About this RNA
MIR2617 microRNA precursor family: an 84-nucleotide RNA sequence from Medicago truncatula. Taxonomically the source falls in Medicago (Eukaryota, rosids, fabids, Fabales).
RNA sequence: AUGUAGUGUGACAUGCCCGUUUGGGAUUUACUCUGAUGUAUGUUUAAUUAUUUAAUUACUUUUGGGUAACGGGUUGUUACAACC
Number, nucleotide and partner (000 for none) at each position: 001a000002u000003g000004u000005a000006g083007u081008g080009u079010g078011a077012c076013a075014u000015g000016c073017c072018c071019g070020u069021u068022u000023g000024g000025g000026a000027u000028u000029u000030a000031c000032u000033c000034u000035g000036a000037u000038g000039u000040a000041u000042g000043u000044u000045u000046a000047a000048u000049u000050a000051u000052u000053u000054a000055a000056u000057u000058a000059c000060u000061u000062u000063u000064g000065g000066g000067u000068a021069a020070c019071g018072g017073g016074u000075u013076g012077u011078u010079a009080c008081a007082a000083c006084c000
Pairs were carried over by alignment from the consensus structure, which was predicted with RNAalifold.